[Rfam]
RNA sequence: AGGUCAUUUCAAAGAGAGCAUAUGGGACCAAAACCAGGAGCUCUUAACGCUGCAACCUAAGAUUGAAGUUCGCCAUAGGAUAUAAUAGACACUCAAUAGUGCUAUGUUUUCCUGGGGAGAUAUACAA
Dot-bracket structure: .(((..(......((((((.(.(..(........).)).))))))......)..)))............((.((..((((....((((.((((....))))))))....))))..)).)).......
RNA: Small nucleolar RNA SNORA25
Organism: Phyllostomus discolor